[Rfam]
RNA: Mason-Pfizer monkey virus packaging signal
Organism: Molossus molossus
RNA sequence: UGGUGCCCAACGUGGGACUCCAGCAAGGGGGAUCCAGUGAAGGACACCGUUUGAGUGGCCGGCAGGAAGAAAAGCAAAGGAAAAGAAAGGAUAAGAAAAGAGGGAAUGACUCGGGAACCUGCUACGUUUGCAUCCCUCGGGUAACUGAACGGUGAUUAUGGGUCAAGCAUUGAGCCAAGAUAAGAAGUUCGUUGAAGGACUAAAAAAGGCUAUCAAGGCACGAGGAGUAAAGGUGAAAAUUAAGCAUUUGUGUCAGUAUUUUGAUUAUAUUAAAGAAGUUUGUCCUU
Numbered sequence: 001u002g003g004u005g006c007c008c009a010a011c012g013u014g015g016g017a018c019u020c021c022a023g024c025a026a027g028g029g030g031g032a033u034c035c036a037g038u039g040a041a042g043g044a045c046a047c048c049g050u051u052u053g054a055g056u057g058g059c060c061g062g063c064a065g066g067a068a069g070a071a072a073a074g075c076a077a078a079g080g081a082a083a084a085g086a087a088a089g090g091a092u093a094a095g096a097a098a099a100g101a102g103g104g105a106a107u108g109a110c111u112c113g114g115g116a117a118c119c120u121g122c123u124a125c126g127u128u129u130g131c132a133u134c135c136c137u138c139g140g141g142u143a144a145c146u147g148a149a150c151g152g153u154g155a156u157u158a159u160g161g162g163u164c165a166a167g168c169a170u171u172g173a174g175c176c177a178a179g180a181u182a183a184g185a186a187g188u189u190c191g192u193u194g195a196a197g198g199a200c201u202a203a204a205a206a207a208g209g210c211u212a213u214c215a216a217g218g219c220a221c222g223a224g225g226a227g228u229a230a231a232g233g234u235g236a237a238a239a240u241u242a243a244g245c246a247u248u249u250g251u252g253u254c255a256g257u258a259u260u261u262u263g264a265u266u267a268u269a270u271u272a273a274a275g276a277a278g279u280u281u282g283u284c285c286u287u
Stems, first nucleotide, its partner, number of pairs: 006029003012024002035049001037047002100138002102135002107132001110126001113123002146165003150162001153160002172213001174210003221263005227257002231249005272287002275284002